[Rfam]
Alphaproteobacterial sRNA BjrC1505: a 136-nucleotide RNA from Allobosea sp. PAMC 26642. The source organism's lineage runs through Bacteria, Pseudomonadati, Alphaproteobacteria, Alloboseaceae and Allobosea. Pairs were carried over by alignment from the consensus structure. On this family, see Madhugiri et al., RNA Biol 2012: "Small RNAs of the Bradyrhizobium/Rhodopseudomonas lineage and their analysis". The family's RNA type in Rfam is small RNA.

RNA sequence: GCGACUUAACGGUGCCUUAACGAUUCCAAAAUAUGAAUCGCAUCGUCCGGUUUGUCUGGAUGUCGAGUGGCUCCUGCCCACUCUGUUUGACGCCUCCCUGUUGACCUUCGAGCCGCCUCAGGGCGGCUCUUUUUUC
Dot-bracket structure: (((((......)((...((............))))..))))...((((.........))))...((((((.......)))))).....((((......)))).......((((((((....)))))))).......
Numbered sequence: 001g002c003g004a005c006u007u008a009a010c011g012g013u014g015c016c017u018u019a020a021c022g023a024u025u026c027c028a029a030a031a032u033a034u035g036a037a038u039c040g041c042a043u044c045g046u047c048c049g050g051u052u053u054g055u056c057u058g059g060a061u062g063u064c065g066a067g068u069g070g071c072u073c074c075u076g077c078c079c080a081c082u083c084u085g086u087u088u089g090a091c092g093c094c095u096c097c098c099u100g101u102u103g104a105c106c107u108u109c110g111a112g113c114c115g116c117c118u119c120a121g122g123g124c125g126g127c128u129c130u131u132u133u134u135u136c
Stems, first nucleotide, its partner, number of pairs: 001041004005012001013035002018033002045061004065083006089102004110129008